[Rfam]
RNA: SR1 sRNA
Organism: Pontibacillus marinus
RNA sequence: AUUAAAUUAUAUUGAAAGCGUUAUCAAAAAAACACUUAAAGGGAGUUGAAUCAGCGAUGGGUACAAUUAUUUGUCAAGACUGUCAGCGCGUGAUCGAACAUUUUGAAGAUGAGAAGGUCUCAACUCUUUAUGGAAACUGCUGCUCCAGCUGUAAAAGCAAAAACAAACAUAAAGCAUAAAAGAAAAAGCUAACCAGUCUCGACUGGUUAGCUUUUU
Numbered sequence: 001a002u003u004a005a006a007u008u009a010u011a012u013u014g015a016a017a018g019c020g021u022u023a024u025c026a027a028a029a030a031a032a033c034a035c036u037u038a039a040a041g042g043g044a045g046u047u048g049a050a051u052c053a054g055c056g057a058u059g060g061g062u063a064c065a066a067u068u069a070u071u072u073g074u075c076a077a078g079a080c081u082g083u084c085a086g087c088g089c090g091u092g093a094u095c096g097a098a099c100a101u102u103u104u105g106a107a108g109a110u111g112a113g114a115a116g117g118u119c120u121c122a123a124c125u126c127u128u129u130a131u132g133g134a135a136a137c138u139g140c141u142g143c144u145c146c147a148g149c150u151g152u153a154a155a156a157g158c159a160a161a162a163a164c165a166a167a168c169a170u171a172a173a174g175c176a177u178a179a180a181a182g183a184a185a186a187a188g189c190u191a192a193c194c195a196g197u198c199u200c201g202a203c204u205g206g207u208u209a210g211c212u213u214u215u216u
Stems, first nucleotide, its partner, number of pairs: 018118002021116002024113001027110001036107002039104004045099003058093001060091001064088001070086002144166001185214013
Dot-bracket structure: .................((.((.(..(........((.((((..(((..........(.(...(.....((.............)).)..).)...))).)))).))..)..).)))).........................(.....................)..................(((((((((((((....)))))))))))))..